[Rfam]
RNA sequence: AUACCUUUCUUGGCCUUUUGGCUAGGAUCAGGUGUAGUAUUUGUUCUUAUCAGUUUAAUAUCUGAUAUGUGGGCCAUUGGCUCACACAAUAUUAAAUUUAUUUUUUGAAGGUGAAGAUCCAUCAAAAUGGGUUGCUACUUGGGUCUUCAAACGUCGCCCAUGUGUUGCACUAAUACACGGACCUGACGCACCGCCA
Numbered sequence: 001a002u003a004c005c006u007u008u009c010u011u012g013g014c015c016u017u018u019u020g021g022c023u024a025g026g027a028u029c030a031g032g033u034g035u036a037g038u039a040u041u042u043g044u045u046c047u048u049a050u051c052a053g054u055u056u057a058a059u060a061u062c063u064g065a066u067a068u069g070u071g072g073g074c075c076a077u078u079g080g081c082u083c084a085c086a087c088a089a090u091a092u093u094a095a096a097u098u099u100a101u102u103u104u105u106u107g108a109a110g111g112u113g114a115a116g117a118u119c120c121a122u123c124a125a126a127a128u129g130g131g132u133u134g135c136u137a138c139u140u141g142g143g144u145c146u147u148c149a150a151a152c153g154u155c156g157c158c159c160a161u162g163u164g165u166u167g168c169a170c171u172a173a174u175a176c177a178c179g180g181a182c183c184u185g186a187c188g189c190a191c192c193g194c195c196a
Stems, first nucleotide, its partner, number of pairs: 008027003012023004048067006069085007113148008128137003152188005158180002161177003
This 196-nucleotide RNA sequence from Salvia splendens belongs to the Rfam family "U2 spliceosomal RNA". The base pairs follow the family's consensus structure, which is taken from published work. Its Rfam clan is "U2 clan". The source organism's lineage runs through Eukaryota, Viridiplantae, Magnoliopsida, Nepetoideae and core Calosphace. It is annotated as a spliceosomal small nuclear RNA. On this family, see Zwieb, Nucleic Acids Res 1997: "The uRNA database". The match comes from Rfam's covariance-model search (148 bits). Its family is annotated with mRNA branch site recognition, U2 snRNP and pre-mRNA branch point binding in the Gene Ontology. About the family: U2 is a small nuclear RNA (snRNA) component of the spliceosome (involved in pre-mRNA splicing). Complementary binding between U2 snRNA (in an area lying towards the 5' end but 3' to hairpin I) and the branchpoint sequence (BPS) of the intron results the bulging out of an unpaired adenosine, on the BPS, which initiates a nucleophilic attack at the intronic 5' splice site, thus starting the first of two transesterification reactions that mediate splicing.